[Rfam]
RNA sequence: UGAUAUCAGGUCUGUGGUUGAAAGUCGAUGCUAGUCGCAGGCGAAACGAUCCUCGUAAGCAGGGACAGGUCUCUGUGAGCAUGGUGCGGUUUAGAAGUAAGUCCGUCCGCCAUUUAUGGCGAGAGAAGUAGUAGUGGGGACAAAAUGUUAUGAGCGAACCUUCCAGGCGGCGAGUGAGGGGGCAAAAACCAGGUCAGCUGAUAUUA
Numbered sequence: 001u002g003a004u005a006u007c008a009g010g011u012c013u014g015u016g017g018u019u020g021a022a023a024g025u026c027g028a029u030g031c032u033a034g035u036c037g038c039a040g041g042c043g044a045a046a047c048g049a050u051c052c053u054c055g056u057a058a059g060c061a062g063g064g065a066c067a068g069g070u071c072u073c074u075g076u077g078a079g080c081a082u083g084g085u086g087c088g089g090u091u092u093a094g095a096a097g098u099a100a101g102u103c104c105g106u107c108c109g110c111c112a113u114u115u116a117u118g119g120c121g122a123g124a125g126a127a128g129u130a131g132u133a134g135u136g137g138g139g140a141c142a143a144a145a146u147g148u149u150a151u152g153a154g155c156g157a158a159c160c161u162u163c164c165a166g167g168c169g170g171c172g173a174g175u176g177a178g179g180g181g182g183c184a185a186a187a188a189c190c191a192g193g194u195c196a197g198c199u200g201a202u203a204u205u206a
Base pairs, nucleotide, nucleotide: 001206002205003204004203005202006201007200008199009198012197013196014195015191016190017189018188019187029176030175031041033091034090035089036088037087038086039085050084051083058076062072063071064070082184103170104169105168106167107166108121109120110119111118112117125163126162127161128160134155135154140148141147142146

Notes
A member of the RNA family "raiA RNA", 206 nucleotides long. The family's RNA type in Rfam is riboswitch.